[Rfam]
RNA sequence: GGGACCAACGAUGAUGUUCGGUAGAGGAUGAGGCAUGGCCAAGGAACUAUAAGUAUCUGGAAUCCUGAGGUCCAA
Numbered sequence: 001g002g003g004a005c006c007a008a009c010g011a012u013g014a015u016g017u018u019c020g021g022u023a024g025a026g027g028a029u030g031a032g033g034c035a036u037g038g039c040c041a042a043g044g045a046a047c048u049a050u051a052a053g054u055a056u057c058u059g060g061a062a063u064c065c066u067g068a069g070g071u072c073c074a075a
Stems, first nucleotide, its partner, number of pairs: 002073005
This 75-nucleotide RNA from Tursiops truncatus belongs to the Rfam family "Small nucleolar RNA SNORD113/SNORD114 family". A search with the family's covariance model found it, with a score of 45 bits. Clan: SNORD74 clan. Lineage of the source: Eukaryota > Vertebrata > Artiodactyla > Delphinidae > Tursiops. Rfam 15.1 lists 5,721 matches to the family in 142 species. A reference for the family is Cavaille et al. (2002), "Identification of tandemly-repeated C/D snoRNA genes at the imprinted human 14q32 domain reminiscent of those at the Prader-Willi/Angelman syndrome region", Hum Mol Genet. Rfam's curators write: The imprinted human domain at 14q32 contains two clusters of tandemly repeated small nucleolar RNAs named 14q(I) and 14q(II) snoRNAs. These two clusters are named SNORD113 and SNORD114 respectively in the HGNC approved gene symbol nomenclature. The snoRNAs found in both clusters are clearly related and are represented here by a single family. These snoRNAs are intron encoded and are processed from the tissue-specific non-coding human MEG8 RNA, which lies downstream of the imprinted genes DLK1 and GTL2. snoRNAs 14q(I) and 14q(II) differ from previously identified C/D box snoRNAs in their expression profiles and lack of complementarity to rRNA and snRNA. Homologues of these snoRNAs are found in the imprinted non-coding mouse transcript Rian, and in the rat non-coding Bsr (brain-specific repetitive) RNA.